[Rfam]
RNA: MIR535 microRNA precursor family
RNA sequence: AUUAUCAAUUGACAACGAGAGAGAGCACGCUCGUUGGCAUUCUUGCAAGGACAUGGAUGUGUACAAGCGUGCUCUCUAUCGUUGUCAUAUGAUA
Numbered sequence: 001a002u003u004a005u006c007a008a009u010u011g012a013c014a015a016c017g018a019g020a021g022a023g024a025g026c027a028c029g030c031u032c033g034u035u036g037g038c039a040u041u042c043u044u045g046c047a048a049g050g051a052c053a054u055g056g057a058u059g060u061g062u063a064c065a066a067g068c069g070u071g072c073u074c075u076c077u078a079u080c081g082u083u084g085u086c087a088u089a090u091g092a093u094a
Stems, first nucleotide, its partner, number of pairs: 010087005016081002020077002023074001025072007033064002